[Rfam]
RNA sequence: GCCCCGGUAGCUCAGGGGAUAGAGCAGCCGCCUCCUAAGCGGCAGGUCAGACGUUCGAAUCGUCCCCGGGGUA
Dot-bracket structure: (((((((..((((........)))).(((((.......)))))......((((.......)))).))))))).
tRNA: a 73-nucleotide RNA sequence from Oceanispirochaeta sp. M1. Rfam 15.1 lists 5,335,975 matches to the family in 14,413 species. The match comes from Rfam's covariance-model search (57 bits). Rfam classes the family as a transfer RNA. Taxonomically the source falls in Oceanispirochaeta (Bacteria, Pseudomonadati, Spirochaetia, Spirochaetaceae).